Annotation: This 87-nucleotide RNA sequence from Pantoea ananatis belongs to the Rfam family "Peptidase-S11 RNA". The base pairs follow the family's consensus structure, which is taken from published work. The sequence is in the family's curated seed alignment. Taxonomically the source falls in Pantoea ananatis (Bacteria, Pseudomonadati, Gammaproteobacteria, Enterobacterales).

RNA sequence: AGUAUGAUGCUGCGGCCAGCCCGCGCUCUGCCUGCUCAGUCGUCGGCGGCCUGUGUUUACACAGCGCACAAUCUUAACCGGGUCUUU
Numbered sequence: 001a002g003u004a005u006g007a008u009g010c011u012g013c014g015g016c017c018a019g020c021c022c023g024c025g026c027u028c029u030g031c032c033u034g035c036u037c038a039g040u041c042g043u044c045g046g047c048g049g050c051c052u053g054u055g056u057u058u059a060c061a062c063a064g065c066g067c068a069c070a071a072u073c074u075u076a077a078c079c080g081g082g083u084c085u086u087u
Base pairs, nucleotide, nucleotide: 015050016049017048019047020046021045023043024042025041027039051064052063053062054061055060